[Rfam]
Nucleotides: 134
Stems, first nucleotide, its partner, number of pairs: 003055006010049001013046002016041005022035001024033003057073006079120002082117001083112004087107007
Number, partner (000 for none) and nucleotide at each position: 001000u002000u003055g004054c005053a006052c007051a008050g009000g010049g011000a012000a013046u014045a015000c016041c017040c018039a019038a020037g021000u022035g023000u024033g025032c026031u027000u028000u029000a030000u031026a032025g033024u034000u035022u036000c037020c038019u039018u040017g041016g042000c043000u044000u045014u046013g047000a048000c049010c050008c051007u052006g053005u054004g055003c056000u057073a058072g059071a060070g061069c062068a063000u064000u065000a066000c067000c068062u069061g070060u071059u072058c073057u074000u075000c076000u077000c078000c079120u080119c081000u082117g083112c084111a085110u086109u087107g088106a089105a090104a091103g092102g093101a094000a095000u096000a097000u098000u099000u100000a101093u102092c103091c104090u105089u106088u107087u108000a109086a110085a111084u112083g113000u114000a115000u116000u117082c118000u119080g120079a121000a122000a123000g124000c125000c126000a127000g128000c129000a130000c131000a132000u133000u134000a

A member of the RNA family "Small nucleolar RNA SNORA22", 134 nucleotides long. It is annotated as an H/ACA-box small nucleolar RNA. Rfam 15.1 lists 883 matches to the family in 606 species. About the family: ACA22 is a member of the H/ACA class of snoRNA that guide the sites of modification of uridines to pseudouridines. It is one of the family's seed sequences.